[Rfam]
RNA: mir-30 microRNA precursor family
Organism: Anolis carolinensis
RNA sequence: ACAGGUAAUGUAAACAUCCUACACUCUCAGCUGUGUAGAUAAGAAGAAAGCUGGGAGAAGGCUGUUUACUCUCUCUGC
Numbered sequence: 001a002c003a004g005g006u007a008a009u010g011u012a013a014a015c016a017u018c019c020u021a022c023a024c025u026c027u028c029a030g031c032u033g034u035g036u037a038g039a040u041a042a043g044a045a046g047a048a049a050g051c052u053g054g055g056a057g058a059a060g061g062c063u064g065u066u067u068a069c070u071c072u073c074u075c076u077g078c
Base pairs, nucleotide, nucleotide: 002077003076004075005074010069011068012067013066014065015064016063018061019060020059024057025056026055027054028053029052030051031050032049